This 60-nucleotide RNA sequence from Novosphingobium fluoreni belongs to the Rfam family "nhaA-I RNA".
[Rfam]
RNA sequence: GGGUGUUUGUCUCCGGUAUGUCGGGACAGGCAGGUUUUCACGCUGGUCGGGCCGCUAGCG
Numbered sequence: 001g002g003g004u005g006u007u008u009g010u011c012u013c014c015g016g017u018a019u020g021u022c023g024g025g026a027c028a029g030g031c032a033g034g035u036u037u038u039c040a041c042g043c044u045g046g047u048c049g050g051g052c053c054g055c056u057a058g059c060g
Base pairs, nucleotide, nucleotide: 005031006030007029008028009027010026011025012024041060042059043058044057045056046055047054
The base pairs follow the family's consensus structure, which is taken from published work.